[Rfam]
RNA sequence: UUAAUAAAUACACAUCGGCAAUAUAGAACUGAGGGCAAACCUCGGAACCUUAAUUAAUAAAGCCUGGUGUCCCUAUGAUGAAUAACAUGACAACGCUCAAAUACUGGUCAUGGAUCGGCGUUUUCUCCGUGUCGAUUCUGUUCUGGUGCCAGCUCCUCUGGCUGGCCGUCAACUGAUCCAAAACCUCGCUUCGGCGGGGUUUUUCAUUUUC
Numbered sequence: 001u002u003a004a005u006a007a008a009u010a011c012a013c014a015u016c017g018g019c020a021a022u023a024u025a026g027a028a029c030u031g032a033g034g035g036c037a038a039a040c041c042u043c044g045g046a047a048c049c050u051u052a053a054u055u056a057a058u059a060a061a062g063c064c065u066g067g068u069g070u071c072c073c074u075a076u077g078a079u080g081a082a083u084a085a086c087a088u089g090a091c092a093a094c095g096c097u098c099a100a101a102u103a104c105u106g107g108u109c110a111u112g113g114a115u116c117g118g119c120g121u122u123u124u125c126u127c128c129g130u131g132u133c134g135a136u137u138c139u140g141u142u143c144u145g146g147u148g149c150c151a152g153c154u155c156c157u158c159u160g161g162c163u164g165g166c167c168g169u170c171a172a173c174u175g176a177u178c179c180a181a182a183a184c185c186u187c188g189c190u191u192c193g194g195c196g197g198g199g200u201u202u203u204u205c206a207u208u209u210u211c
Base pairs, nucleotide, nucleotide: 012070013069014068018063019062029045030044031043032042033041109146112138114136115135116134117133118132119131120130149165150164151163153161154160182201183200184199185198186197187196188195189194
RNA: Enterobacterial sRNA STnc180